[Rfam]
RNA: TPP riboswitch aptamer (THI element)
Organism: Thermobrachium celere
RNA sequence: AGCAGACGCUAGGGGAGCCUUUGGCUGAGAGGAAGGCAAACAAGCCUUCGACCCUUAGAACCUGAACUGGGUAAUGCCAGCGAAGGGAAGCGGAAGAGAACUCCU
Dot-bracket structure: ......((((((((..(((...)))......(((((........)))))..)))).....(((...((((......))))...)))..)))).............